[Rfam]
RNA sequence: GCUGAGCUCAGUCACGUGAGCUUGUGACCCAAGUGGGGGCACCAAGGUGAUGGAACUUGGGCUCAGGCAGCUGGGUCGGCUCUUUGGAUGGCGAACUGCUGGCCUGUCCUAUCCAAGUUGGGAGUUGACCCAUAUGACUUGGGCGAAGGCUCAGGCAUUAUGAGUCCUAUAGUGGAGGGGACCGCAAGAGGCUGGUUUCACAGAGCAAUGAACACCUCUCGCUCCUGACAGUGGACGGAUAACGGGUCGGCGCUAUCGGGGUCCAUAAAUGCCCAGUUGCCUAGGAUACCAAUUGGACCACCACUUUU
Numbered sequence: 001g002c003u004g005a006g007c008u009c010a011g012u013c014a015c016g017u018g019a020g021c022u023u024g025u026g027a028c029c030c031a032a033g034u035g036g037g038g039g040c041a042c043c044a045a046g047g048u049g050a051u052g053g054a055a056c057u058u059g060g061g062c063u064c065a066g067g068c069a070g071c072u073g074g075g076u077c078g079g080c081u082c083u084u085u086g087g088a089u090g091g092c093g094a095a096c097u098g099c100u101g102g103c104c105u106g107u108c109c110u111a112u113c114c115a116a117g118u119u120g121g122g123a124g125u126u127g128a129c130c131c132a133u134a135u136g137a138c139u140u141g142g143g144c145g146a147a148g149g150c151u152c153a154g155g156c157a158u159u160a161u162g163a164g165u166c167c168u169a170u171a172g173u174g175g176a177g178g179g180g181a182c183c184g185c186a187a188g189a190g191g192c193u194g195g196u197u198u199c200a201c202a203g204a205g206c207a208a209u210g211a212a213c214a215c216c217u218c219u220c221g222c223u224c225c226u227g228a229c230a231g232u233g234g235a236c237g238g239a240u241a242a243c244g245g246g247u248c249g250g251c252g253c254u255a256u257c258g259g260g261g262u263c264c265a266u267a268a269a270u271g272c273c274c275a276g277u278u279g280c281c282u283a284g285g286a287u288a289c290c291a292a293u294u295g296g297a298c299c300a301c302c303a304c305u306u307u308u
Stems, first nucleotide, its partner, number of pairs: 001040003004023007028037003044307006051300003056295001058291003062285002065282002068279009078264002081261004087256001089255003099250009108238002112235004117229009127166003131162004138155007167172001174219005185210002192203003
RNA: Plant signal recognition particle RNA